A member of the RNA family "Fungal signal recognition particle RNA" from Penicillium capsulatum, 267 nucleotides long. Lineage of the source: Eukaryota > Dikarya > Ascomycota > Eurotiales > Penicillium. The match comes from Rfam's covariance-model search (158 bits). The family's RNA type in Rfam is non-coding RNA gene. Rfam 15.1 lists 748 matches to the family in 741 species. For this family Rfam cites "Towards the structure of the mammalian signal recognition particle" (Wild et al., Curr Opin Struct Biol, 2002). Gene Ontology terms of the family: SRP-dependent cotranslational protein targeting to membrane, signal sequence recognition, signal recognition particle, plasma membrane targeting and signal recognition particle, endoplasmic reticulum targeting. Clan: SRP clan.

[Rfam]
RNA sequence: AAUCUGUCAUGGAUAACCUAGUGGAAGAACCACCGGUCUGUCAGUAAUUCUGCUUCGGUCUCGGCCGGCAGGCACUGGUGCCUGGUACGAAUCCUGGGGUCGGCGUUGCACUCGUGCGAGUAAUCCACGAUGCUGUGACCCGCUAAGCAAUGGAAGUGACCCUUGAGGGAAGCAAUUCUGCAGAGACAUUUCCACCCCGGGAUGGCGUCGCCAGAAUACACCGUCCUGUUCCAGGCGCACUGGCUAUUUGGUGGUGCAACUACAACU
Numbered sequence: 001a002a003u004c005u006g007u008c009a010u011g012g013a014u015a016a017c018c019u020a021g022u023g024g025a026a027g028a029a030c031c032a033c034c035g036g037u038c039u040g041u042c043a044g045u046a047a048u049u050c051u052g053c054u055u056c057g058g059u060c061u062c063g064g065c066c067g068g069c070a071g072g073c074a075c076u077g078g079u080g081c082c083u084g085g086u087a088c089g090a091a092u093c094c095u096g097g098g099g100u101c102g103g104c105g106u107u108g109c110a111c112u113c114g115u116g117c118g119a120g121u122a123a124u125c126c127a128c129g130a131u132g133c134u135g136u137g138a139c140c141c142g143c144u145a146a147g148c149a150a151u152g153g154a155a156g157u158g159a160c161c162c163u164u165g166a167g168g169g170a171a172g173c174a175a176u177u178c179u180g181c182a183g184a185g186a187c188a189u190u191u192c193c194a195c196c197c198c199g200g201g202a203u204g205g206c207g208u209c210g211c212c213a214g215a216a217u218a219c220a221c222c223g224u225c226c227u228g229u230u231c232c233a234g235g236c237g238c239a240c241u242g243g244c245u246a247u248u249u250g251g252u253g254g255u256g257c258a259a260c261u262a263c264a265a266c267u
Stems, first nucleotide, its partner, number of pairs: 002014003019265001021263004029255008040244006049235002055068005071226001074224002077222004082214005087208003091203009101142001103140001107137004112130005118125002143147001151194007162185003169178003